[Rfam]
RNA sequence: ACCAUCCUUAGGGUUGUGCUACUGUCCAAUGAGGGUGUACUGAGGGCAGUACUGCUAACACCUACACAACAUGCCCCUAUCAACUAGAGCUUGGCUUUACCUUGGUGCAAUUUUGGAAAA
Dot-bracket structure: .....((....))..(((..(((((((.....((.....))..)))))))..)))......................(((((..((((((...))))))...))))).............